Rfam assigns this 127-nucleotide sequence from Aquihabitans sp. G128 to the family "FMN riboswitch aptamer (RFN element)".
[Rfam]
RNA sequence: GCCCCCUCGCGGGGCUGGGUGCAACUCCCAACCGGCGGUACAGCCCGCGAACCCGGACCUCACGGUCCGGGCCGAUCCGGUGAGAUCCCGGAGCCGACGGUGAUAGUCCGGAUGAGAGCGAGGGUGC
Numbered sequence: 001g002c003c004c005c006c007u008c009g010c011g012g013g014g015c016u017g018g019g020u021g022c023a024a025c026u027c028c029c030a031a032c033c034g035g036c037g038g039u040a041c042a043g044c045c046c047g048c049g050a051a052c053c054c055g056g057a058c059c060u061c062a063c064g065g066u067c068c069g070g071g072c073c074g075a076u077c078c079g080g081u082g083a084g085a086u087c088c089c090g091g092a093g094c095c096g097a098c099g100g101u102g103a104u105a106g107u108c109c110g111g112a113u114g115a116g117a118g119c120g121a122g123g124g125u126g127c
Base pairs, nucleotide, nucleotide: 004124005123006122007121008120009119010118017029018028019027031107032106033096034095035048036047037046038045043094044093052071053070076092077091078090079089080088098110099109100108
The base pairs follow the family's consensus structure, which is taken from published work.
NCBI's taxonomy places the organism under Bacteria, Bacillati, Acidimicrobiia, Iamiaceae, Aquihabitans.